[Rfam]
RNA sequence: AAGUGAUGAUGCGUGUGAUGUUCCAAGAAACAGUGCAUGGCUGAGCUUGAUAAGGGUUGUACAUUUACCAAAACUUGGAUAGGUGAUGAUACCGAAAGAAAAUGUUCAAA
Numbered sequence: 001a002a003g004u005g006a007u008g009a010u011g012c013g014u015g016u017g018a019u020g021u022u023c024c025a026a027g028a029a030a031c032a033g034u035g036c037a038u039g040g041c042u043g044a045g046c047u048u049g050a051u052a053a054g055g056g057u058u059g060u061a062c063a064u065u066u067a068c069c070a071a072a073a074c075u076u077g078g079a080u081a082g083g084u085g086a087u088g089a090u091a092c093c094g095a096a097a098g099a100a101a102a103u104g105u106u107c108a109a110a
Stems, first nucleotide, its partner, number of pairs: 001048004011041002013038005019032003023078004061105003082093004
Rfam assigns this 110-nucleotide RNA sequence from Clostridium sp. CAG:277 to the family "drum RNA". Rfam classes the family as a small RNA. From the family's description: Firmicutes, Bacteroidetes (1 example), Proteobacteria (2 examples), Spirochaetes (2 examples). The source organism's lineage runs through Bacteria, Bacillati, Clostridia, Eubacteriales and Clostridium.